[Rfam]
Shown here is a 120-nucleotide RNA from Apium graveolens, a member of the family "Plastid-psbA-1 3UTR RNA".
Clan: Plastid-psbA 3UTR RNA clan.
Plastid psbA-1 is a non-coding RNA (ncRNA) present in plastids.
The family's consensus secondary structure was predicted with LocARNA.
RNA sequence: UUGAAGUUACAUCUACAAAUGGGUAAGAUCAAGUUUUAGUAUAUAAGAGUUUUUGAAAUUUUAAAAAAUGAACAAUAUAUCUUUCGUGGUGUUCUGUCAAGAGAGCGGUAUUGCUCUAUU
Dot-bracket structure: .......(.(((......))).)..........................................((..((.((((((..((.((.((.........)).)).))..)))))).))..))